[Rfam]
RNA sequence: ACAGGGCACUUAAGGGAUGAGACCGCCAAUAACGGUUGACCGGUGUUCUGUUGUCCGUGUUGAAGAACGG
Numbered sequence: 001a002c003a004g005g006g007c008a009c010u011u012a013a014g015g016g017a018u019g020a021g022a023c024c025g026c027c028a029a030u031a032a033c034g035g036u037u038g039a040c041c042g043g044u045g046u047u048c049u050g051u052u053g054u055c056c057g058u059g060u061u062g063a064a065g066a067a068c069g070g
Base pairs, nucleotide, nucleotide: 001051002050003049004048005047006046007045008044009043014041015040022036023035024034025033055070056069057068058067
RNA: Archaeal large subunit ribosomal RNA, nucleotides 560 to 629
Organism: Thermogymnomonas acidicola